RNA sequence: UCUGAUAAUAGAUGUGUUAGAAAAUUUCUGCAUGGUGAAUCCCCCUGUGCGGAGGGGCGACUGGUGAACGGUAUGAUCUCUUUGAUGAUCGUAAGCGAGAAUACGCGGGUUUGGUGGCACCAGGCCGAACUCACCGGGAGGCACCCGGCACCAUGCAAUGGCACAUAGCGCCACUCUCCAGCCCCUCUCCGGAGGGGCUUUCUUAUGGAC
Numbered sequence: 001u002c003u004g005a006u007a008a009u010a011g012a013u014g015u016g017u018u019a020g021a022a023a024a025u026u027u028c029u030g031c032a033u034g035g036u037g038a039a040u041c042c043c044c045c046u047g048u049g050c051g052g053a054g055g056g057g058c059g060a061c062u063g064g065u066g067a068a069c070g071g072u073a074u075g076a077u078c079u080c081u082u083u084g085a086u087g088a089u090c091g092u093a094a095g096c097g098a099g100a101a102u103a104c105g106c107g108g109g110u111u112u113g114g115u116g117g118c119a120c121c122a123g124g125c126c127g128a129a130c131u132c133a134c135c136g137g138g139a140g141g142c143a144c145c146c147g148g149c150a151c152c153a154u155g156c157a158a159u160g161g162c163a164c165a166u167a168g169c170g171c172c173a174c175u176c177u178c179c180a181g182c183c184c185c186u187c188u189c190c191g192g193a194g195g196g197g198c199u200u201u202c203u204u205a206u207g208g209a210c
Base pairs, nucleotide, nucleotide: 014164015163016162030156031155032154033153034152035151036150037149042057043056044055045054046053064092065091066090095106096105097104107132108131109130110129112127113126114125134148135147136146137145138144168210171207180199181198182197183196184195185194186193
The record is a 210-nucleotide sequence from Shigella dysenteriae, which matches "Gammaproteobacterial sRNA STnc100" in Rfam. Pairs were carried over by alignment from the consensus structure, which was predicted with CMfinder.